[Rfam]
Nucleotides: 055
Stems, first nucleotide, its partner, number of pairs: 001040005007034002011029001013027003
Number, partner (000 for none) and nucleotide at each position: 001040c002039g003038u004037g005036u006000g007034g008033u009000g010000u011029c012000u013027g014026g015025c016000g017000g018000g019000a020000u021000a022000a023000a024000g025015g026014c027013c028000c029011g030000a031000u032000a033008g034007c035000g036005a037004c038003a039002c040001g041000g042000u043000c044000u045000u046000a047000a048000a049000g050000a051000g052000a053000g054000c055000u

L31-Gammaproteobacteria ribosomal protein leader: a 55-nucleotide RNA from Candidatus Regiella insecticola. It is annotated as a cis-regulatory leader. The organism belongs to Candidatus Regiella insecticola, within Bacteria. Rfam's curators put it in the seed alignment.